RNA: Plant signal recognition particle RNA
RNA sequence: GCCGAGCUUGGUAACUCUAGCUUGUAACUCAAGUGGGGGCAUCAAAUUGAUGGGACAUGACUUGUGCUAUGCUCGGUUGGGCUGGUCGCUGCAUAACGCAGGCCUGCCCGCUCCAAGUAAGGAGUUGAGCAAUGGGGCUUGAGCGAAGGCUCGGGUCUCCUUGUUCCUAAAGUGAAGGGCACAGCGUGAGGCUGGUUUCACAGAGCAGUGAUCACCUUCCUCUCCUCACAGUGGAGGGAUUACAGGUUGCUGCACUACUAGUCCACCGUAACCGGGUGUGCCAAGCUCCUGAACCAUCAUUUUU
Numbered sequence: 001g002c003c004g005a006g007c008u009u010g011g012u013a014a015c016u017c018u019a020g021c022u023u024g025u026a027a028c029u030c031a032a033g034u035g036g037g038g039g040c041a042u043c044a045a046a047u048u049g050a051u052g053g054g055a056c057a058u059g060a061c062u063u064g065u066g067c068u069a070u071g072c073u074c075g076g077u078u079g080g081g082c083u084g085g086u087c088g089c090u091g092c093a094u095a096a097c098g099c100a101g102g103c104c105u106g107c108c109c110g111c112u113c114c115a116a117g118u119a120a121g122g123a124g125u126u127g128a129g130c131a132a133u134g135g136g137g138c139u140u141g142a143g144c145g146a147a148g149g150c151u152c153g154g155g156u157c158u159c160c161u162u163g164u165u166c167c168u169a170a171a172g173u174g175a176a177g178g179g180c181a182c183a184g185c186g187u188g189a190g191g192c193u194g195g196u197u198u199c200a201c202a203g204a205g206c207a208g209u210g211a212u213c214a215c216c217u218u219c220c221u222c223u224c225c226u227c228a229c230a231g232u233g234g235a236g237g238g239a240u241u242a243c244a245g246g247u248u249g250c251u252g253c254a255c256u257a258c259u260a261g262u263c264c265a266c267c268g269u270a271a272c273c274g275g276g277u278g279u280g281c282c283a284a285g286c287u288c289c290u291g292a293a294c295c296a297u298c299a300u301u302u303u304u
Stems, first nucleotide, its partner, number of pairs: 001040003004023005010017002028037003044303003048299006056291002062285002066281002069279010079264008088256001090254002101248006108238002111236005117229002120226005127166006134159011167172001174219005183212001185210003192203003